[Rfam]
Shown here is a 62-nucleotide sequence from Hibiscus trionum, a member of the family "Plastid-psbA-2 3UTR RNA". About the family: Plastid psbA-2 is a non-coding RNA (ncRNA) present in plastids. It was identified in inverted repeat sequences in the 3 prime untranslate region (3UTR) of photosystem II quinone-binding protein (psbA). A search with the family's covariance model found it, with a score of 56 bits. On this family, see Richter et al., Plant Commun 2023: "Retrograde signaling in plants: A critical review focusing on the GUN pathway and beyond". The organism belongs to Hibiscus, within Eukaryota.
RNA sequence: AUAAAGGAGCAAUACCAACACUCUUGAUAGAACAAGAAAUUGGUUAUUGCUCCUUUAUUUUC
Numbered sequence: 001a002u003a004a005a006g007g008a009g010c011a012a013u014a015c016c017a018a019c020a021c022u023c024u025u026g027a028u029a030g031a032a033c034a035a036g037a038a039a040u041u042g043g044u045u046a047u048u049g050c051u052c053c054u055u056u057a058u059u060u061u062c
Stems, first nucleotide, its partner, number of pairs: 001058014015043004022037005